[Rfam]
RNA: Mammalian CPEB3 ribozyme
Nucleotides: 076
Base pairs, nucleotide, nucleotide: 012044014043015042016041017040020076021075022074023073024072025071026070027039028038048065049064050063052061053060
Number, partner (000 for none) and nucleotide at each position: 001000g002000u003000u004000g005000c006000a007000a008000g009000u010000c011000c012044g013000a014043g015042g016041c017040c018000a019000c020076a021075g022074c023073a024072g025071a026070a027039g028038c029000a030000c031000u032000u033000g034000u035000g036000g037000c038028g039027u040017g041016g042015c043014c044012c045000u046000g047000u048065c049064a050063g051000c052061u053060u054000c055000c056000a057000a058000u059000a060053a061052a062000u063050c064049u065048g066000c067000a068000a069000a070026u071025u072024u073023u074022g075021c076020u